A member of the RNA family "Small nucleolar RNA SNORA5" from Canis lupus, 135 nucleotides long. A search with the family's covariance model found it, with a score of 111 bits.
RNA sequence: CGCAGCUAUGUCAAAUUCGAUGCCUGCCUAUCCUGUGGCCGGCACUGGUCCAAAAGGCUGCCACAGCAACACUGUGACCCAUGGGCCCUGAUUCCCCGCACUGGGCCUCAGGGAUAAAUCUGAUCACAGACACCA
Numbered sequence: 001c002g003c004a005g006c007u008a009u010g011u012c013a014a015a016u017u018c019g020a021u022g023c024c025u026g027c028c029u030a031u032c033c034u035g036u037g038g039c040c041g042g043c044a045c046u047g048g049u050c051c052a053a054a055a056g057g058c059u060g061c062c063a064c065a066g067c068a069a070c071a072c073u074g075u076g077a078c079c080c081a082u083g084g085g086c087c088c089u090g091a092u093u094c095c096c097c098g099c100a101c102u103g104g105g106c107c108u109c110a111g112g113g114a115u116a117a118a119u120c121u122g123a124u125c126a127c128a129g130a131c132a133c134c135a
Stems, first nucleotide, its partner, number of pairs: 002061004018047002021044004026039003074127004079122001086113005
Source information: The family has 6 seed sequences and 2,226 matches in Rfam 15.1. Rfam links the family to the GO terms RNA processing and nucleolus.